Source information:
U7 small nuclear RNA: a 58-nucleotide RNA from Carlito syrichta. A search with the family's covariance model found it, with a score of 38 bits. NCBI's taxonomy places the organism under Eukaryota, Eumetazoa, Primates, Tarsiidae, Carlito. From the family's description: Animal histone pre-mRNAs are spliced by a different mechanism than nuclear pre-mRNAs and self-splicing introns. This processing involves the U7 snRNP, which contains only one RNA species: U7. The 5' end of U7 RNA is thought to base-pair to a conserved spacer element downstream of the cleavage site in histone pre-mRNA. This family contains a number of annotated U7 pseudogenes.
RNA sequence: AAUUGUUACAGCUCUUUUAGCAUUUGUCUAACAUUUAUUUCGGUUUUUACUGGAAAAU
Numbered sequence: 001a002a003u004u005g006u007u008a009c010a011g012c013u014c015u016u017u018u019a020g021c022a023u024u025u026g027u028c029u030a031a032c033a034u035u036u037a038u039u040u041c042g043g044u045u046u047u048u049a050c051u052g053g054a055a056a057a058u
Base pairs, nucleotide, nucleotide: 036057038055039054040053041052042051043050044049